[Rfam]
RNA: c-di-AMP riboswitch aptamer (ydaO/yuaA leader)
Organism: Paenibacillus rhizosphaerae
RNA sequence: CAUUACUAAUCGCUGAGUUUCCGCAAAAAAGCGCGGAAAUCGGGGGAACCAAACGCGUGCCAUGGAGCAGCGAACCGGUGUGAGAGUCGGGGGUCUGCUGCCAGCCGCAGGGGUGAAUCCCGGCUACGGAUGCCAUGGAUCCGGCCGGGUAGAGCGACUCUCACCGCUCGAAUCCGUCAGCUAACCUCGUAAGCGUCGUUUGAGAGAGGAA
Numbered sequence: 001c002a003u004u005a006c007u008a009a010u011c012g013c014u015g016a017g018u019u020u021c022c023g024c025a026a027a028a029a030a031g032c033g034c035g036g037a038a039a040u041c042g043g044g045g046g047a048a049c050c051a052a053a054c055g056c057g058u059g060c061c062a063u064g065g066a067g068c069a070g071c072g073a074a075c076c077g078g079u080g081u082g083a084g085a086g087u088c089g090g091g092g093g094u095c096u097g098c099u100g101c102c103a104g105c106c107g108c109a110g111g112g113g114u115g116a117a118u119c120c121c122g123g124c125u126a127c128g129g130a131u132g133c134c135a136u137g138g139a140u141c142c143g144g145c146c147g148g149g150u151a152g153a154g155c156g157a158c159u160c161u162c163a164c165c166g167c168u169c170g171a172a173u174c175c176g177u178c179a180g181c182u183a184a185c186c187u188c189g190u191a192a193g194c195g196u197c198g199u200u201u202g203a204g205a206g207a208g209g210a211a
Stems, first nucleotide, its partner, number of pairs: 011195004018039007041189005050110001111175003119149007152169004